[Rfam]
RNA: TPP riboswitch aptamer (THI element)
RNA sequence: CGCAUUCGCUAGGGGUGUUGUCACCACAGCUUGCUGUGAUGCCGACUGAGACAGUCCCUUUGAACCUGAUUGAGGUAAUCCUCGCGCAGGGAAGCCAUCGAACCACCGU
Numbered sequence: 001c002g003c004a005u006u007c008g009c010u011a012g013g014g015g016u017g018u019u020g021u022c023a024c025c026a027c028a029g030c031u032u033g034c035u036g037u038g039a040u041g042c043c044g045a046c047u048g049a050g051a052c053a054g055u056c057c058c059u060u061u062g063a064a065c066c067u068g069a070u071u072g073a074g075g076u077a078a079u080c081c082u083c084g085c086g087c088a089g090g091g092a093a094g095c096c097a098u099c100g101a102a103c104c105a106c107c108g109u
Base pairs, nucleotide, nucleotide: 006097008095009094010093011059012058013057014056016053017046018045019044020043065090066089067088068087071084072083073082074081